[Rfam]
RNA sequence: UGUUUUAUACAUUUACUUGCCUGAAAUGGGUAUUUCUUACUUCUUUUAACAAAAAAUGCCUUGUUCCCUGCCGGCAAAAGCACGAAGCACACAGAGAACAUGUGUGACUGAAAGGGUAAAUUCAAACGGGAGAUAAUACGGAACUGGCGAAGAGAAACACUUGAAUGGUGCGUCCGAGUGGACUCGAACCACCGACCCCCACCA
Numbered sequence: 001u002g003u004u005u006u007a008u009a010c011a012u013u014u015a016c017u018u019g020c021c022u023g024a025a026a027u028g029g030g031u032a033u034u035u036c037u038u039a040c041u042u043c044u045u046u047u048a049a050c051a052a053a054a055a056a057u058g059c060c061u062u063g064u065u066c067c068c069u070g071c072c073g074g075c076a077a078a079a080g081c082a083c084g085a086a087g088c089a090c091a092c093a094g095a096g097a098a099c100a101u102g103u104g105u106g107a108c109u110g111a112a113a114g115g116g117u118a119a120a121u122u123c124a125a126a127c128g129g130g131a132g133a134u135a136a137u138a139c140g141g142a143a144c145u146g147g148c149g150a151a152g153a154g155a156a157a158c159a160c161u162u163g164a165a166u167g168g169u170g171c172g173u174c175c176g177a178g179u180g181g182a183c184u185c186g187a188a189c190c191a192c193c194g195a196c197c198c199c200c201a202c203c204a
Stems, first nucleotide, its partner, number of pairs: 006032003012026003045133003166201003170197001175194002178192004